This 123-nucleotide RNA from Caenorhabditis auriculariae belongs to the Rfam family "Caenorhabditis snoRNA ceN81".
Taxonomically the source falls in Caenorhabditis (Eukaryota, Metazoa, Chromadorea, Rhabditida).
A search with the family's covariance model found it, with a score of 71 bits.
[Rfam]
RNA sequence: CGCGAGAAGAUGUCAUUUGCUUGAAUACUUAUUUUUGCAAAGUUACGCUUCUCGGAAACCAUUGCCACUUCUCGUUAGAUGUUGUUUUUUUUGACUACAUCUUCUAAAAUGAUGGCAACAAUU
Numbered sequence: 001c002g003c004g005a006g007a008a009g010a011u012g013u014c015a016u017u018u019g020c021u022u023g024a025a026u027a028c029u030u031a032u033u034u035u036u037g038c039a040a041a042g043u044u045a046c047g048c049u050u051c052u053c054g055g056a057a058a059c060c061a062u063u064g065c066c067a068c069u070u071c072u073c074g075u076u077a078g079a080u081g082u083u084g085u086u087u088u089u090u091u092u093g094a095c096u097a098c099a100u101c102u103u104c105u106a107a108a109a110u111g112a113u114g115g116c117a118a119c120a121a122u123u
Stems, first nucleotide, its partner, number of pairs: 003054007012046002016041005023034001025032002063117005070112002075107005081098002084095003